[Rfam]
RNA sequence: UAAGUCCCCAGGGUCAAAAAGUGAUGCCCUCCUCGUGCUUGCACGAAAGGACGGGCAUUACCUUUUGACCCGCCCAAACAUGAGAACGCAGCGGUUUUCCGCGUAGUUCGAAUGUUUGCAGGAUUGCGGGAGCUGCUUGCAACGCAGCGGUUUACAACUUU
Numbered sequence: 001u002a003a004g005u006c007c008c009c010a011g012g013g014u015c016a017a018a019a020a021g022u023g024a025u026g027c028c029c030u031c032c033u034c035g036u037g038c039u040u041g042c043a044c045g046a047a048a049g050g051a052c053g054g055g056c057a058u059u060a061c062c063u064u065u066u067g068a069c070c071c072g073c074c075c076a077a078a079c080a081u082g083a084g085a086a087c088g089c090a091g092c093g094g095u096u097u098u099c100c101g102c103g104u105a106g107u108u109c110g111a112a113u114g115u116u117u118g119c120a121g122g123a124u125u126g127c128g129g130g131a132g133c134u135g136c137u138u139g140c141a142a143c144g145c146a147g148c149g150g151u152u153u154a155c156a157a158c159u160u161u
Base pairs, nucleotide, nucleotide: 002160003159004158005157012070013069014068015067018064019063021061022060023059024058025057026056027055028054029053030051031050032049033048034045035044036043037042075118076117077116078115079114080113081112084109085108086107087106091102092101093100094099121153122152123151124150125149126148127147132143134141135140
Clostridiales-1 RNA: a 161-nucleotide sequence from Roseburia sp. CAG:309.